[Rfam]
RNA sequence: AGAGUAAGCGCAGGCGGUUGCAAACCAGUUCCUGGUGGCAACUGGUUUGAGGAAAGUCCGGGCUCCCGAAAGACCAAACUUGCUGGGUAACGCCCAGUGCGAGCGAUCGCGAGGAUAGUGCCACAGAAAGAUACCGCCAAUUAGUCAUUAGUCAUUAGUCAUUAGUCAUUUGUAAAAAAACAAAGGACAAUUGACAAAGGACAAUUGACAAAAUUGGUAAGGGUGCAAAGGUGCGGUAAGAGCGCACCAGCAGCGUCGAGAGGCGCUGGCUCGGUAAACCCCGGUUGGGUGCAAGGCGAAGGAACUAAGGUUGGUCUUUUACCAGUUCCAUUUUAGAGCCGCUAGAGGCGUCUGGUAACAGGCGUCCCAGAUAGAUAACUGCCCUCACAAGAGAACAGAACCCGGCUUAUGUCUAACUCUCUCC
Numbered sequence: 001a002g003a004g005u006a007a008g009c010g011c012a013g014g015c016g017g018u019u020g021c022a023a024a025c026c027a028g029u030u031c032c033u034g035g036u037g038g039c040a041a042c043u044g045g046u047u048u049g050a051g052g053a054a055a056g057u058c059c060g061g062g063c064u065c066c067c068g069a070a071a072g073a074c075c076a077a078a079c080u081u082g083c084u085g086g087g088u089a090a091c092g093c094c095c096a097g098u099g100c101g102a103g104c105g106a107u108c109g110c111g112a113g114g115a116u117a118g119u120g121c122c123a124c125a126g127a128a129a130g131a132u133a134c135c136g137c138c139a140a141u142u143a144g145u146c147a148u149u150a151g152u153c154a155u156u157a158g159u160c161a162u163u164a165g166u167c168a169u170u171u172g173u174a175a176a177a178a179a180a181c182a183a184a185g186g187a188c189a190a191u192u193g194a195c196a197a198a199g200g201a202c203a204a205u206u207g208a209c210a211a212a213a214u215u216g217g218u219a220a221g222g223g224u225g226c227a228a229a230g231g232u233g234c235g236g237u238a239a240g241a242g243c244g245c246a247c248c249a250g251c252a253g254c255g256u257c258g259a260g261a262g263g264c265g266c267u268g269g270c271u272c273g274g275u276a277a278a279c280c281c282c283g284g285u286u287g288g289g290u291g292c293a294a295g296g297c298g299a300a301g302g303a304a305c306u307a308a309g310g311u312u313g314g315u316c317u318u319u320u321a322c323c324a325g326u327u328c329c330a331u332u333u334u335a336g337a338g339c340c341g342c343u344a345g346a347g348g349c350g351u352c353u354g355g356u357a358a359c360a361g362g363c364g365u366c367c368c369a370g371a372u373a374g375a376u377a378a379c380u381g382c383c384c385u386c387a388c389a390a391g392a393g394a395a396c397a398g399a400a401c402c403c404g405g406c407u408u409a410u411g412u413c414u415a416a417c418u419c420u421c422u423c424c
Base pairs, nucleotide, nucleotide: 001420002419003418004417005416007414008413010412011411012410013383014382015381016380017379018378019377021049022048023047024046025045026044027043028042029041054408055407056406058405059404060403061402062401063291065289066288072318073317077286078285079284081283082282083097084096085095086094087093098112099110100109101108102107113281114280118279119278120275121274122273134222135221136218137217138216139215140214141213142212230248231247232246233245234244235243250270251268252267253266254265255264256263257262295340296339297338301329302328303327304326305325306324309323310322311321313319347366348365349364350363351362352361353360354359
Shown here is a 424-nucleotide sequence from Iningainema tapete, a member of the family "Bacterial RNase P class A". The source organism's lineage runs through Bacteria, Bacillati, Cyanophyceae, Scytonemataceae and Iningainema tapete. It is annotated as a ribozyme. Its family is annotated with tRNA processing, ribonuclease P activity and dimeric ribonuclease P complex in the Gene Ontology.